[Rfam]
RNA sequence: CCGGUAGAGGAUAACUCUAGAGACUCCGGCUGAUGAAAGCAAAAGGAGCGCCGAAGAAGCAAACUGUGGGAAUUCAUCAUUCCGCAGUGGAAACUGACAGGCAAAAGGAAGGUUAUCCGACGGAACUCUGGAGAGAGCGAGCAAUCGCCGCCUACGUGGAGAUAACCAACUGGUAAAAGGACAGAGAG
Numbered sequence: 001c002c003g004g005u006a007g008a009g010g011a012u013a014a015c016u017c018u019a020g021a022g023a024c025u026c027c028g029g030c031u032g033a034u035g036a037a038a039g040c041a042a043a044a045g046g047a048g049c050g051c052c053g054a055a056g057a058a059g060c061a062a063a064c065u066g067u068g069g070g071a072a073u074u075c076a077u078c079a080u081u082c083c084g085c086a087g088u089g090g091a092a093a094c095u096g097a098c099a100g101g102c103a104a105a106a107g108g109a110a111g112g113u114u115a116u117c118c119g120a121c122g123g124a125a126c127u128c129u130g131g132a133g134a135g136a137g138c139g140a141g142c143a144a145u146c147g148c149c150g151c152c153u154a155c156g157u158g159g160a161g162a163u164a165a166c167c168a169a170c171u172g173g174u175a176a177a178a179g180g181a182c183a184g185a186g187a188g
Stems, first nucleotide, its partner, number of pairs: 001123003010117007022049001024048004050102003056098001058095002063088009126186005135149001137148004150174003156170001158167002
RNA: glycine-GGAnGA riboswitch aptamer